This 47-nucleotide sequence from Tannerella forsythia belongs to the Rfam family "Acido-Lenti-1 RNA". By type it is a small RNA.
[Rfam]
RNA sequence: CCCAAGGCUUACGCCAUUGGGCUGAAAUAUAACGGACUUUCAGUCCU
Numbered sequence: 001c002c003c004a005a006g007g008c009u010u011a012c013g014c015c016a017u018u019g020g021g022c023u024g025a026a027a028u029a030u031a032a033c034g035g036a037c038u039u040u041c042a043g044u045c046c047u
Stems, first nucleotide, its partner, number of pairs: 001021005006015003034046005